[Rfam]
The record is a 78-nucleotide RNA sequence from Salix brachista, which matches "Small nucleolar RNA Z199" in Rfam. Lineage of the source: Eukaryota > Streptophytina > Magnoliopsida > Saliceae > Salix. The base pairs follow the family's consensus structure, which was predicted with PFOLD. From the family's description: snoZ199 is a C/D box small nucleolar RNA, which acts as a methylation guide RNA for sites on 18S and 25S rRNA. Rice snoZ199 is reported to be homologous to Arabidopsis snoR13. Gene Ontology terms of the family: RNA processing and nucleolus. By type it is a C/D-box small nucleolar RNA.
RNA sequence: CAUCAGUCGUCGAGGAAAAACUGCAGCAAUAUGACUGAUCGCCAUCCAUGAUUCUUGGUAUUUAAGUCUCCGAUGAUG
Numbered sequence: 001c002a003u004c005a006g007u008c009g010u011c012g013a014g015g016a017a018a019a020a021c022u023g024c025a026g027c028a029a030u031a032u033g034a035c036u037g038a039u040c041g042c043c044a045u046c047c048a049u050g051a052u053u054c055u056u057g058g059u060a061u062u063u064a065a066g067u068c069u070c071c072g073a074u075g076a077u078g
Stems, first nucleotide, its partner, number of pairs: 001078005037046003